[Rfam]
Shown here is a 216-nucleotide RNA from Paenibacillus uliginis, a member of the family "Bacillus sRNA ncr1575".
RNA sequence: AAGAACAAUUAUGAGAGGACUGAUGAAGGACAAUGAUUAACUAAUCUAUAUUUUUAUUUGAAAUGAAUAACUUCAAACUACAAAAUAUAGGGUUAGUCUAUCCAUUUUUAUAAAUCAGUUUUCACUUGAAUAACCAUGAUUCUGAUGGUAACAACGAACUUAUUUGAGUUAAGUGAAAGACUAAUCCUUCCAAUUACAAAUUGGGGGGAUUUUUUU
Numbered sequence: 001a002a003g004a005a006c007a008a009u010u011a012u013g014a015g016a017g018g019a020c021u022g023a024u025g026a027a028g029g030a031c032a033a034u035g036a037u038u039a040a041c042u043a044a045u046c047u048a049u050a051u052u053u054u055u056a057u058u059u060g061a062a063a064u065g066a067a068u069a070a071c072u073u074c075a076a077a078c079u080a081c082a083a084a085a086u087a088u089a090g091g092g093u094u095a096g097u098c099u100a101u102c103c104a105u106u107u108u109u110a111u112a113a114a115u116c117a118g119u120u121u122u123c124a125c126u127u128g129a130a131u132a133a134c135c136a137u138g139a140u141u142c143u144g145a146u147g148g149u150a151a152c153a154a155c156g157a158a159c160u161u162a163u164u165u166g167a168g169u170u171a172a173g174u175g176a177a178a179g180a181c182u183a184a185u186c187c188u189u190c191c192a193a194u195u196a197c198a199a200a201u202u203g204g205g206g207g208g209a210u211u212u213u214u215u216u
Stems, first nucleotide, its partner, number of pairs: 016109003024104002027101001029098003042095006048088006057077006064070001117164003125156001126154003183211011